[Rfam]
Shown here is a 139-nucleotide RNA from Paenibacillus yonginensis, a member of the family "c-di-AMP riboswitch aptamer (ydaO/yuaA leader)". Its family is annotated with regulation of gene expression and cyclic-di-AMP binding in the Gene Ontology. A search with the family's covariance model found it, with a score of 63 bits.

RNA sequence: UUACUACAUCAGCCGAAUUCCCCGCACCUGGGAAACGGGGGAACCAAGUUAUGGGUGAAUUGACUCCACUGUCAGAGAGUCAUAGGGAACCUUCGACCGAAUCCUCAAGCUAACCUCGCAGGCCUUGGAAGGAGUUUUA
Number, nucleotide and partner (000 for none) at each position: 001u000002u000003a000004c000005u000006a000007c000008a000009u000010c000011a000012g123013c122014c121015g000016a000017a000018u034019u033020c032021c031022c030023c000024g000025c000026a000027c000028c000029u000030g022031g021032g020033a019034a018035a000036c118037g117038g116039g115040g114041g000042a000043a000044c000045c000046a000047a000048g000049u000050u000051a000052u000053g104054g103055g102056u000057g000058a000059a000060u000061u082062g081063a080064c079065u078066c077067c000068a000069c000070u000071g000072u000073c000074a000075g000076a000077g066078a065079g064080u063081c062082a061083u000084a000085g098086g097087g000088a000089a000090c000091c000092u000093u000094c000095g000096a000097c086098c085099g000100a000101a000102u055103c054104c053105u000106c000107a000108a000109g000110c000111u000112a000113a000114c040115c039116u038117c037118g036119c000120a000121g014122g013123c012124c000125u000126u000127g000128g000129a000130a000131g000132g000133a000134g000135u000136u000137u000138u000139a000